[Rfam]
RNA: Streptomyces-metK RNA
Organism: Streptomyces scopuliridis
RNA sequence: UCGAGACACUUGCCCCCGUGGCCCGAUACGACCGAUAAAGUGGUCGUGGACCGUCGCGGGGCUGCAGCCCUCCGCCGGUCCGCCAAUGAUCAGCCAGCAGCCGCUGCAACCACAGGGAG
Numbered sequence: 001u002c003g004a005g006a007c008a009c010u011u012g013c014c015c016c017c018g019u020g021g022c023c024c025g026a027u028a029c030g031a032c033c034g035a036u037a038a039a040g041u042g043g044u045c046g047u048g049g050a051c052c053g054u055c056g057c058g059g060g061g062c063u064g065c066a067g068c069c070c071u072c073c074g075c076c077g078g079u080c081c082g083c084c085a086a087u088g089a090u091c092a093g094c095c096a097g098c099a100g101c102c103g104c105u106g107c108a109a110c111c112a113c114a115g116g117g118a119g
Stems, first nucleotide, its partner, number of pairs: 048081006056075001058072003095106004